[Rfam]
The family of this 104-nucleotide sequence from a Cyclobacteriaceae bacterium is "Bacteroidales small SRP". It scores 72 bits against the family's covariance model.
RNA sequence: UUGCACCGGCAAAUCGGCACGACCAGGCUCCUGCUGAACUCCCCCAGGGCCGGAAGGCAGCAAGGGUAGGCGGUUGUAGCGGUGCGAUGUUCGGUUUGCCACUU
Numbered sequence: 001u002u003g004c005a006c007c008g009g010c011a012a013a014u015c016g017g018c019a020c021g022a023c024c025a026g027g028c029u030c031c032u033g034c035u036g037a038a039c040u041c042c043c044c045c046a047g048g049g050c051c052g053g054a055a056g057g058c059a060g061c062a063a064g065g066g067u068a069g070g071c072g073g074u075u076g077u078a079g080c081g082g083u084g085c086g087a088u089g090u091u092c093g094g095u096u097u098g099c100c101a102c103u104u
Stems, first nucleotide, its partner, number of pairs: 008100008017090003020086002022083002
Overview:
On this family, see Ryan et al., Nat Commun 2020: "A high-resolution transcriptome map identifies small RNA regulation of metabolism in the gut microbe Bacteroides thetaiotaomicron". The family's RNA type in Rfam is non-coding RNA gene.